[Rfam]
RNA: Mammalian CPEB3 ribozyme
Organism: Parnassius apollo
RNA sequence: GAAGUAGUACAAGGGGUCAUUGUAGAAGCGUGAUCGUCGCGACCCCUGCCAGCCCUUUUCAGGGCUGAAAUUCUACA
Numbered sequence: 001g002a003a004g005u006a007g008u009a010c011a012a013g014g015g016g017u018c019a020u021u022g023u024a025g026a027a028g029c030g031u032g033a034u035c036g037u038c039g040c041g042a043c044c045c046c047u048g049c050c051a052g053c054c055c056u057u058u059u060c061a062g063g064g065c066u067g068a069a070a071u072u073c074u075a076c077a
Stems, first nucleotide, its partner, number of pairs: 013046006021077007028040003050067007